The family of this 79-nucleotide RNA sequence from Tolypothrix tenuis is "Photosynthesis regulatory RNA1".
Its family is annotated with regulation of photosynthesis and regulation of translation in the Gene Ontology.
The family's RNA type in Rfam is small RNA.
NCBI's taxonomy places the organism under Bacteria, Cyanobacteriota, Cyanophyceae, Tolypothrix, Tolypothrix tenuis.
Rfam's curators write: Formerly known as Syr1 discovered in Synechocystis sp PCC 6803, is a regulatory factor controlling photosynthetic functions. PsrR1 interacts with the ribosome binding regions of several photosynthesis-related mRNAs. In particular, psaL mRNA is processed by RNase E only in the presence of PsrR1.
The literature on the family includes a 2014 paper in Plant Cell by Georg et al., "The small regulatory RNA SyR1/PsrR1 controls photosynthetic functions in cyanobacteria".

[Rfam]
RNA sequence: UCAAAGUUUUCCUUUUCAAUCGCUGUAUCUAAUCGUCAUUUUGACUUCUCUAUAGCCUCGGUGGUUAACCGAGGUUUUU
Numbered sequence: 001u002c003a004a005a006g007u008u009u010u011c012c013u014u015u016u017c018a019a020u021c022g023c024u025g026u027a028u029c030u031a032a033u034c035g036u037c038a039u040u041u042u043g044a045c046u047u048c049u050c051u052a053u054a055g056c057c058u059c060g061g062u063g064g065u066u067a068a069c070c071g072a073g074g075u076u077u078u079u
Stems, first nucleotide, its partner, number of pairs: 055075008
Dot-bracket structure: ......................................................((((((((.....))))))))....